About this RNA
The family of this 82-nucleotide RNA from Sphingomonas sp. NBWT7 is "Makes More Granules Regulator RNA (mmgR)". By type it is a small RNA. The match comes from Rfam's covariance-model search (45 bits). From the family's description: SuhB later renamed mmgR (makes more granules regulator) was a putative non-coding RNA found multiple times in the Agrobacterium tumefaciens genome and related alpha-proteobacteria. The source organism's lineage runs through Bacteria, Pseudomonadati, Pseudomonadota, Sphingomonadales and Sphingomonas.
RNA sequence: GGAUCGGGCCUUUCAGGCAUCCUCUCCUAAAAACUUUUCCGGCCGAUCCUUUUCGUAAGGGUCGGCCUUUUUUUCGUGGUCG
Numbered sequence: 001g002g003a004u005c006g007g008g009c010c011u012u013u014c015a016g017g018c019a020u021c022c023u024c025u026c027c028u029a030a031a032a033a034c035u036u037u038u039c040c041g042g043c044c045g046a047u048c049c050u051u052u053u054c055g056u057a058a059g060g061g062u063c064g065g066c067c068u069u070u071u072u073u074u075c076g077u078g079g080u081c082g
Stems, first nucleotide, its partner, number of pairs: 008018004041067011